Rfam assigns this 92-nucleotide sequence from Granulibacter bethesdensis to the family "Glycine riboswitch aptamer".
Rfam describes the family as follows. This family represents the bacterial glycine riboswitch.
Lineage of the source: Bacteria > Alphaproteobacteria > Acetobacteraceae > Granulibacter > Granulibacter bethesdensis.
The base pairs follow the family's consensus structure.
RNA sequence: UCUGGAGAGAGGCCCGGCAGGGUCCGCCGAAGGGGAAAUCCGGCUUUUUGCGGAAACGCCAGCCGGGUGAUGCUCUCAGGCACCAAGACAGA
Numbered sequence: 001u002c003u004g005g006a007g008a009g010a011g012g013c014c015c016g017g018c019a020g021g022g023u024c025c026g027c028c029g030a031a032g033g034g035g036a037a038a039u040c041c042g043g044c045u046u047u048u049u050g051c052g053g054a055a056a057c058g059c060c061a062g063c064c065g066g067g068u069g070a071u072g073c074u075c076u077c078a079g080g081c082a083c084c085a086a087g088a089c090a091g092a
Stems, first nucleotide, its partner, number of pairs: 001092004011024004026081003029077002033075003040067001